RNA sequence: UUACUGGCCGCUUUAGCUAUUGAACUGUUCUGUCACUCUCUGACAGAGAACCAUUUCUUCUUUGAGAGAGUGACAAAACAGUUCAAUAGCUAAAGCGUAAAGGGGG
Numbered sequence: 001u002u003a004c005u006g007g008c009c010g011c012u013u014u015a016g017c018u019a020u021u022g023a024a025c026u027g028u029u030c031u032g033u034c035a036c037u038c039u040c041u042g043a044c045a046g047a048g049a050a051c052c053a054u055u056u057c058u059u060c061u062u063u064g065a066g067a068g069a070g071u072g073a074c075a076a077a078a079c080a081g082u083u084c085a086a087u088a089g090c091u092a093a094a095g096c097g098u099a100a101a102g103g104g105g106g
Stems, first nucleotide, its partner, number of pairs: 001105002004102002011095018029067002033065003049059002